[Rfam]
A member of the RNA family "transfer-messenger RNA" from Merdimmobilis hominis, 353 nucleotides long. Rfam classes the family as a non-coding RNA gene. For this family Rfam cites "Phylogenetic analysis of tmRNA secondary structure" (Williams and Bartel, RNA, 1996). The organism belongs to Merdimmobilis, within Bacteria. Bacterial tmRNA, also known as 10Sa RNA or SsrA, is named for its dual tRNA and mRNA-like properties. Its role is to liberate the mRNA from a stalled ribosome. The base pairs follow the family's consensus structure, which is taken from published work.
RNA sequence: GGGGGCGUAAAGGUUUCGACGGGGAUCAAGAACUGAGGUAAGCGAGCAGAGCGGGCGGAAGCUCUUUAAUCGCCGCACUUUAAAUUUAAACGCUAACAAUAACGAAUUAGCUUACGCUGCCUAAUUAGGCGCGUCGUCCAUGCCGGGAGGGCCCACGGACCCGACAGGGCGUCAAACAAGUGGGGAACGUAUCAUCGGCGCGGCCCGUCCGUUGAUAGGCACAAGGGUCUACUAAACUGAUAAGCCUGCUGUUCGGCGUAUCGGCAAGGGAAUGUUAAAAGAAUAAGCUACGCUCGUAGAAAGCUUUGGGGAACGGUUUUCGGACAGGGGUUCGACUCCCCUCGCCUCCACCA
Numbered sequence: 001g002g003g004g005g006c007g008u009a010a011a012g013g014u015u016u017c018g019a020c021g022g023g024g025a026u027c028a029a030g031a032a033c034u035g036a037g038g039u040a041a042g043c044g045a046g047c048a049g050a051g052c053g054g055g056c057g058g059a060a061g062c063u064c065u066u067u068a069a070u071c072g073c074c075g076c077a078c079u080u081u082a083a084a085u086u087u088a089a090a091c092g093c094u095a096a097c098a099a100u101a102a103c104g105a106a107u108u109a110g111c112u113u114a115c116g117c118u119g120c121c122u123a124a125u126u127a128g129g130c131g132c133g134u135c136g137u138c139c140a141u142g143c144c145g146g147g148a149g150g151g152c153c154c155a156c157g158g159a160c161c162c163g164a165c166a167g168g169g170c171g172u173c174a175a176a177c178a179a180g181u182g183g184g185g186a187a188c189g190u191a192u193c194a195u196c197g198g199c200g201c202g203g204c205c206c207g208u209c210c211g212u213u214g215a216u217a218g219g220c221a222c223a224a225g226g227g228u229c230u231a232c233u234a235a236a237c238u239g240a241u242a243a244g245c246c247u248g249c250u251g252u253u254c255g256g257c258g259u260a261u262c263g264g265c266a267a268g269g270g271a272a273u274g275u276u277a278a279a280a281g282a283a284u285a286a287g288c289u290a291c292g293c294u295c296g297u298a299g300a301a302a303g304c305u306u307u308g309g310g311g312a313a314c315g316g317u318u319u320u321c322g323g324a325c326a327g328g329g330g331u332u333c334g335a336c337u338c339c340c341c342u343c344g345c346c347u348c349c350a351c352c353a
Stems, first nucleotide, its partner, number of pairs: 001349007020322008033309007043296005048065005054078001056075003114134004120128001135171005144163004152184005190217005196211003202230002205227002232269002237264005244257003248288003252282002326342005